[Rfam]
RNA: Clostridiales-1 RNA
RNA sequence: UUAUUACAGUGUACCAAAACAUAAGCGUACUUGUGCUUGCACAAAAGUACGCUUAUGUUUUGAGGACACGCCCGCAUAAUGAGCAUAAAAGCGCAACGAAGUUGUGCGAUAUGCGAAUUAUGUGGUGAAAUUGCGGGAGUGCAAAGCACGUAGCAAUUUCGUAAUAA
Dot-bracket structure: (((((((..(((...((((((((((((((((((((....))))..))))))))))))))))....)))....((((((((..((((....(((((((...)))))))...))))..))))))))...(((((((....((((...))))...))))))).)))))))